This 121-nucleotide sequence from Ottowia oryzae belongs to the Rfam family "Glycine riboswitch aptamer". The organism belongs to Ottowia, within Bacteria. A search with the family's covariance model found it, with a score of 53 bits.
[Rfam]
RNA sequence: CUAGAUUCUGUUGGAGAGAGGCGGCGCAGUUUGACAGCGCCGCCCACCGAAGGGGCAAGGGGCGUCGCGCGCGCAGUGCGCUGCCUUGAAUCUCUCAGGUAAAGCGGACAGCAGGGUUCCC
Numbered sequence: 001c002u003a004g005a006u007u008c009u010g011u012u013g014g015a016g017a018g019a020g021g022c023g024g025c026g027c028a029g030u031u032u033g034a035c036a037g038c039g040c041c042g043c044c045c046a047c048c049g050a051a052g053g054g055g056c057a058a059g060g061g062g063c064g065u066c067g068c069g070c071g072c073g074c075a076g077u078g079c080g081c082u083g084c085c086u087u088g089a090a091u092c093u094c095u096c097a098g099g100u101a102a103a104g105c106g107g108a109c110a111g112c113a114g115g116g117u118u119c120c121c
Stems, first nucleotide, its partner, number of pairs: 006116008020044008046100003049096002053094003059087006